[Rfam]
RNA: Glycine riboswitch aptamer
Organism: Sutcliffiella cohnii
RNA sequence: CUCUGGAGAGCGUGUAAGAAGUACACCACCAAAGGGGAAAGCUUUAUUGUUUUAUCAAUAAAGUCAAACUUUCAGGUAUAAGGACAGAG
Dot-bracket structure: (((((......((((.......)))).(((.(..(((...(((((((((......)))))))))....))))..))).......)))))